[Rfam]
RNA sequence: UAAUUUGUCUAUGACAAAUCUUCAUGUAGCUAUAACAAAUCCACAUCUAACUGCUUAAAAUAAUUCAUGAGAACUACUGUGUAAAUAAUAACUUUUUAAGAU
Numbered sequence: 001u002a003a004u005u006u007g008u009c010u011a012u013g014a015c016a017a018a019u020c021u022u023c024a025u026g027u028a029g030c031u032a033u034a035a036c037a038a039a040u041c042c043a044c045a046u047c048u049a050a051c052u053g054c055u056u057a058a059a060a061u062a063a064u065u066c067a068u069g070a071g072a073a074c075u076a077c078u079g080u081g082u083a084a085a086u087a088a089u090a091a092c093u094u095u096u097u098a099a100g101a102u
Base pairs, nucleotide, nucleotide: 004100005099006098007097012091014089019084023081024080025079027076028075029074031072

The family of this 102-nucleotide RNA sequence from Populus deltoides is "MIR480 microRNA precursor family". Rfam 15.1 lists 3,070 matches to the family in 171 species. NCBI's taxonomy places the organism under Eukaryota, Streptophytina, Magnoliopsida, Saliceae, Populus. A search with the family's covariance model found it, with a score of 58 bits.